Rfam assigns this 75-nucleotide RNA sequence from Sylvietta virens to the family "Small nucleolar RNA SNORD47". It is annotated as a C/D-box small nucleolar RNA. The family has 20 seed sequences and 755 matches in Rfam 15.1. A search with the family's covariance model found it, with a score of 57 bits. Gene Ontology terms of the family: nucleolus and RNA processing. The organism belongs to Sylvietta, within Eukaryota. The base pairs follow the family's consensus structure, which was predicted with ILM.
RNA sequence: AGCCACUGAUGAAACCGAUUCUGCCAGAUGAGUGACUGUGAUAUUACCCUUUCCGUUCCAUCUUUGUCUGAGGUU
Numbered sequence: 001a002g003c004c005a006c007u008g009a010u011g012a013a014a015c016c017g018a019u020u021c022u023g024c025c026a027g028a029u030g031a032g033u034g035a036c037u038g039u040g041a042u043a044u045u046a047c048c049c050u051u052u053c054c055g056u057u058c059c060a061u062c063u064u065u066g067u068c069u070g071a072g073g074u075u
Base pairs, nucleotide, nucleotide: 001075002074003073004072
Dot-bracket structure: ((((...................................................................))))